[Rfam]
RNA sequence: AGUUGCAAGUUUGAGGCCACAGGAGAAGCACCUAUAGUGCAGCCCUGUUGGAUUUCAAAAAAUCUGUAAUUUCUGCU
Numbered sequence: 001a002g003u004u005g006c007a008a009g010u011u012u013g014a015g016g017c018c019a020c021a022g023g024a025g026a027a028g029c030a031c032c033u034a035u036a037g038u039g040c041a042g043c044c045c046u047g048u049u050g051g052a053u054u055u056c057a058a059a060a061a062a063u064c065u066g067u068a069a070u071u072u073c074u075g076c077u
Base pairs, nucleotide, nucleotide: 013045015044016043017042021077022076024074025073026072027071028040029039030038049066050065051064052063053062054061055060
Description: The record is a 77-nucleotide RNA from Crocodylus porosus, which matches "Mammalian CPEB3 ribozyme" in Rfam. A search with the family's covariance model found it, with a score of 39 bits. The base pairs follow the family's consensus structure, which is taken from published work.